Shown here is a 56-nucleotide sequence from Streptomyces sp. NRRL S-1521, a member of the family "L17-Actino-Proteobacteria ribosomal protein leader". It scores 65 bits against the family's covariance model.

RNA sequence: CCGCGUCCCUGUCGGGGCGCGGCCGCUGACUCCGGUACCUGAUACGGCCGGGGCAG
Numbered sequence: 001c002c003g004c005g006u007c008c009c010u011g012u013c014g015g016g017g018c019g020c021g022g023c024c025g026c027u028g029a030c031u032c033c034g035g036u037a038c039c040u041g042a043u044a045c046g047g048c049c050g051g052g053g054c055a056g
Base pairs, nucleotide, nucleotide: 001022002021003020004019005018006017007016008015009014026056027055028054030053031052032051033050034049035048036047
Description: It is annotated as a cis-regulatory leader.